[Rfam]
Background
A member of the RNA family "ZMP/ZTP riboswitch aptamer (pfl RNA motif)" from Agathobacter ruminis, 81 nucleotides long. Lineage of the source: Bacteria > Bacillati > Bacillota > Clostridia > Agathobacter. The match comes from Rfam's covariance-model search (62 bits). Rfam links the family to the GO terms one-carbon metabolic process and regulation of purine nucleotide biosynthetic process.

RNA sequence: ACUGUGUUAUAUGACUGACGGAAAGUGGAGCAUACCACAUGAAGUAUAACGAAUAUUAAGCCGACCGUCUGGGCACCAAUU
Number, nucleotide and partner (000 for none) at each position: 001a000002c000003u053004g000005u051006g050007u049008u048009a047010u046011a045012u044013g000014a000015c041016u000017g069018a068019c067020g066021g065022a000023a000024a000025g038026u037027g036028g035029a000030g000031c000032a000033u000034a000035c028036c027037a026038c025039a000040u000041g015042a000043a000044g012045u011046a010047u009048a008049a007050c006051g005052a000053a003054u000055a000056u000057u000058a000059a000060g074061c073062c072063g000064a000065c021066c020067g019068u018069c017070u000071g000072g062073g061074c060075a000076c000077c000078a000079a000080u000081u000